[Rfam]
A member of the RNA family "mir-29 microRNA precursor family" from Chelydra serpentina, 77 nucleotides long. A search with the family's covariance model found it, with a score of 47 bits. For this family Rfam cites "microRNAs: tiny regulators with great potential" (Ambros, Cell, 2001). Rfam 15.1 lists 3,328 matches to the family in 787 species.
RNA sequence: AUUGGACCAACUUCUGUUGGUGAGAGAGACAAGCUUUGUGUGUGUUUGUCUCUCUCACCAACAGAAGUUGGUCCAAU
Dot-bracket structure: (((((.(((((((((.((((((...((((.....................)))).)))))).)))))))))).))))
Numbered sequence: 001a002u003u004g005g006a007c008c009a010a011c012u013u014c015u016g017u018u019g020g021u022g023a024g025a026g027a028g029a030c031a032a033g034c035u036u037u038g039u040g041u042g043u044g045u046u047u048g049u050c051u052c053u054c055u056c057a058c059c060a061a062c063a064g065a066a067g068u069u070g071g072u073c074c075a076a077u
Stems, first nucleotide, its partner, number of pairs: 001077004005072001007071009017061006026054004
From the family's description: This family represents the microRNA (miRNA) precursors mir-29.